RNA sequence: GACAAUAAAGUGCCGUCGCAAUAAACCAUUCGGACCCGGGGGCAGUACCCGGCGCCUCCACCCAAGCCCGCAAGUCCGGCGGGCUUCGGCGGGGGCGAUCCAGGAUCGACGAGGGCGUAAAGGGCGAGCUUUUGUCCGGUAUGGUUCCGCCGUGAUCGGGCCAUGCAAUAGUUGCCAACGACAACUAUGCUCCGGUUGCUCAGGCGGCGUAA
Numbered sequence: 001g002a003c004a005a006u007a008a009a010g011u012g013c014c015g016u017c018g019c020a021a022u023a024a025a026c027c028a029u030u031c032g033g034a035c036c037c038g039g040g041g042g043c044a045g046u047a048c049c050c051g052g053c054g055c056c057u058c059c060a061c062c063c064a065a066g067c068c069c070g071c072a073a074g075u076c077c078g079g080c081g082g083g084c085u086u087c088g089g090c091g092g093g094g095g096c097g098a099u100c101c102a103g104g105a106u107c108g109a110c111g112a113g114g115g116c117g118u119a120a121a122g123g124g125c126g127a128g129c130u131u132u133u134g135u136c137c138g139g140u141a142u143g144g145u146u147c148c149g150c151c152g153u154g155a156u157c158g159g160g161c162c163a164u165g166c167a168a169u170a171g172u173u174g175c176c177a178a179c180g181a182c183a184a185c186u187a188u189g190c191u192c193c194g195g196u197u198g199c200u201c202a203g204g205c206g207g208c209g210u211a212a
Stems, first nucleotide, its partner, number of pairs: 001136005014126004026115002030112003036052005053097007137152004
The family of this 212-nucleotide RNA sequence from Rhodopseudomonas rhenobacensis is "permuted transfer-messenger RNA".
Rfam's curators write: Bacterial tmRNA, also known as 10Sa RNA or SsrA, is named for its dual tRNA and mRNA-like properties. Its role is to liberate the mRNA from a stalled ribosome.
It scores 130 bits against the family's covariance model.
Its family is annotated with RNA catabolic process in the Gene Ontology.
The family's RNA type in Rfam is non-coding RNA gene.